[Rfam]
RNA sequence: AUAGCCUCCAAAUAACGAGAAGGUGCAAUAUAGGAACACUUUUUGGUUCAAAGAGAGGCUUAUAUCAAAUAACUCGAAUCAGUUUUGUCAAUAACUCAAAAGCUUCACUCUUUCACCAUCAAACUCUUCUUCCUUUCGUUGGAUUGAUUCGAAUAUCU
Numbered sequence: 001a002u003a004g005c006c007u008c009c010a011a012a013u014a015a016c017g018a019g020a021a022g023g024u025g026c027a028a029u030a031u032a033g034g035a036a037c038a039c040u041u042u043u044u045g046g047u048u049c050a051a052a053g054a055g056a057g058g059c060u061u062a063u064a065u066c067a068a069a070u071a072a073c074u075c076g077a078a079u080c081a082g083u084u085u086u087g088u089c090a091a092u093a094a095c096u097c098a099a100a101a102g103c104u105u106c107a108c109u110c111u112u113u114c115a116c117c118a119u120c121a122a123a124c125u126c127u128u129c130u131u132c133c134u135u136u137c138g139u140u141g142g143a144u145u146g147a148u149u150c151g152a153a154u155a156u157c158u
Base pairs, nucleotide, nucleotide: 003060004059005058006057007056008055014048015047016046018044019043020042021041023039024038025037075151076150077149078148079147080146082124083123084122087119088118099113100112101111102110131143132142133141

This 158-nucleotide RNA sequence from Microthlaspi erraticum belongs to the Rfam family "Small nucleolar RNA snoR138". By type it is an H/ACA-box small nucleolar RNA.